Shown here is a 184-nucleotide RNA sequence from uncultured archaeon A07HR60, a member of the family "Sense overlapping transcript RNA 0042 (sot)". The literature on the family includes a 2015 paper in RNA Biol by Gomes-Filho et al., "Sense overlapping transcripts in IS1341-type transposase genes are functional non-coding RNAs in archaea". The family's consensus secondary structure was predicted with RNAfold. It is associated with IS1341-type transposase (tnpB) genes, at the 3'-end in H. salinarum NRC-1. The tetraloop structural motif may be functional.
RNA sequence: AAGUAACUCCGAGUCUCGCCUGUGAUGGCGGAGAGAGGAGUAACGGCUGGUUGGCACAGCCAUCGACGGUCCUGUUUGACACGGAAACUGGCUCGUUCGAGCCUCAAGAACAGGUAGUGUCGGAGACCACAAUAUCCCAAACCAGCGGCGUGGUGCCGUGGGAAUCCCCGCCGACGGGCGGGGA
Numbered sequence: 001a002a003g004u005a006a007c008u009c010c011g012a013g014u015c016u017c018g019c020c021u022g023u024g025a026u027g028g029c030g031g032a033g034a035g036a037g038g039a040g041u042a043a044c045g046g047c048u049g050g051u052u053g054g055c056a057c058a059g060c061c062a063u064c065g066a067c068g069g070u071c072c073u074g075u076u077u078g079a080c081a082c083g084g085a086a087a088c089u090g091g092c093u094c095g096u097u098c099g100a101g102c103c104u105c106a107a108g109a110a111c112a113g114g115u116a117g118u119g120u121c122g123g124a125g126a127c128c129a130c131a132a133u134a135u136c137c138c139a140a141a142c143c144a145g146c147g148g149c150g151u152g153g154u155g156c157c158g159u160g161g162g163a164a165u166c167c168c169c170g171c172c173g174a175c176g177g178g179c180g181g182g183g184a
Base pairs, nucleotide, nucleotide: 003044004043007040008039009038010037014034015033016031017030018029019028020027045061046060047059048058049057064122065121066120067119068118071114072113073112074111075110076109077108090103091102092101093100094099135163136162137161138160165184166183167182168181169180170179171178172177